[Rfam]
RNA: MIR396 microRNA precursor family
RNA sequence: CUUUGUAUUCUUCCACAGCUUUCUUGAACUGCAUCUAGGUUGCAUGCUGACGGUUGUUUCGCAACUUGUACUUGUUGUUGCGGUUCAAUAAAGCUGUGGGAAGAUACAGACA
Numbered sequence: 001c002u003u004u005g006u007a008u009u010c011u012u013c014c015a016c017a018g019c020u021u022u023c024u025u026g027a028a029c030u031g032c033a034u035c036u037a038g039g040u041u042g043c044a045u046g047c048u049g050a051c052g053g054u055u056g057u058u059u060c061g062c063a064a065c066u067u068g069u070a071c072u073u074g075u076u077g078u079u080g081c082g083g084u085u086c087a088a089u090a091a092a093g094c095u096g097u098g099g100g101a102a103g104a105u106a107c108a109g110a111c112a
Base pairs, nucleotide, nucleotide: 003109004108005107006106007105013099014098015097017095018094019093020092021091022090024088025087026086027085029083030082031081032080033079